About this RNA: Rfam assigns this 102-nucleotide RNA sequence from Otolemur garnettii to the family "Y RNA".
RNA sequence: AGCUGGUCUGACUACAGUGGUGUUUACAACUAAUUGAUCACAACUGGUUGUAGGUUUCUGUUUUCCUUCUCCACUACCACUGCUUCAUUUGAGUGGGUUUUU
Numbered sequence: 001a002g003c004u005g006g007u008c009u010g011a012c013u014a015c016a017g018u019g020g021u022g023u024u025u026a027c028a029a030c031u032a033a034u035u036g037a038u039c040a041c042a043a044c045u046g047g048u049u050g051u052a053g054g055u056u057u058c059u060g061u062u063u064u065c066c067u068u069c070u071c072c073a074c075u076a077c078c079a080c081u082g083c084u085u086c087a088u089u090u091g092a093g094u095g096g097g098u099u100u101u102u
Stems, first nucleotide, its partner, number of pairs: 001098001003096003007092002010090002016081006028064002033059001
NCBI's taxonomy places the organism under Eukaryota, Boreoeutheria, Primates, Strepsirrhini, Otolemur. Rfam 15.1 lists 26,986 matches to the family in 650 species. The base pairs follow the family's consensus structure, which is taken from published work.